Rfam assigns this 199-nucleotide sequence from Vibrio genomosp. F10 to the family "FMN riboswitch aptamer (RFN element)". The match comes from Rfam's covariance-model search (111 bits). Pairs were carried over by alignment from the consensus structure, which is taken from published work.
RNA sequence: UUUUAUUCUCAGGGCGGGGCGAAAUUCCCCACCGGCGGUAAAUCUUACCUUCGCAUUAUUUUGCAUUACUUAGCUUUGCAUUACUCAGCAUUGCACGAUUGUGCGUAAGAUCAGCCCGCGAGCGCUCGAUACGUCGAGGUCAGCAGAUCUGGUGAAAACCCAGAGCCGACGGUUAAAGUCCGGAUGAGAGAGAAUGAAA
Numbered sequence: 001u002u003u004u005a006u007u008c009u010c011a012g013g014g015c016g017g018g019g020c021g022a023a024a025u026u027c028c029c030c031a032c033c034g035g036c037g038g039u040a041a042a043u044c045u046u047a048c049c050u051u052c053g054c055a056u057u058a059u060u061u062u063g064c065a066u067u068a069c070u071u072a073g074c075u076u077u078g079c080a081u082u083a084c085u086c087a088g089c090a091u092u093g094c095a096c097g098a099u100u101g102u103g104c105g106u107a108a109g110a111u112c113a114g115c116c117c118g119c120g121a122g123c124g125c126u127c128g129a130u131a132c133g134u135c136g137a138g139g140u141c142a143g144c145a146g147a148u149c150u151g152g153u154g155a156a157a158a159c160c161c162a163g164a165g166c167c168g169a170c171g172g173u174u175a176a177a178g179u180c181c182g183g184a185u186g187a188g189a190g191a192g193a194a195u196g197a198a199a
Stems, first nucleotide, its partner, number of pairs: 003197008017029003031179002033168002035119004122144002148164005170182003